[Rfam]
Record summary
The family of this 112-nucleotide RNA sequence from Halalkalibacter suaedae is "SAM riboswitch aptamer (S box leader)". Lineage of the source: Bacteria > Bacillati > Caryophanales > Bacillaceae > Halalkalibacter. Gene Ontology term of the family: regulation of gene expression.
RNA sequence: AACUUAUCAAGAGUGGCAGAGGGACUGACCCUUUGAAGCCCGGCAACCGUUUUGUAGGCAUACAAAAAAAGGUGCUAAAUUCAGCAGAAUCUAUGGUUCUGAAAGAUAAGUA
Numbered sequence: 001a002a003c004u005u006a007u008c009a010a011g012a013g014u015g016g017c018a019g020a021g022g023g024a025c026u027g028a029c030c031c032u033u034u035g036a037a038g039c040c041c042g043g044c045a046a047c048c049g050u051u052u053u054g055u056a057g058g059c060a061u062a063c064a065a066a067a068a069a070a071g072g073u074g075c076u077a078a079a080u081u082c083a084g085c086a087g088a089a090u091c092u093a094u095g096g097u098u099c100u101g102a103a104a105g106a107u108a109a110g111u112a
Stems, first nucleotide, its partner, number of pairs: 002111007013041001015040003021031003025084004042076004047072002050067005080104001085101006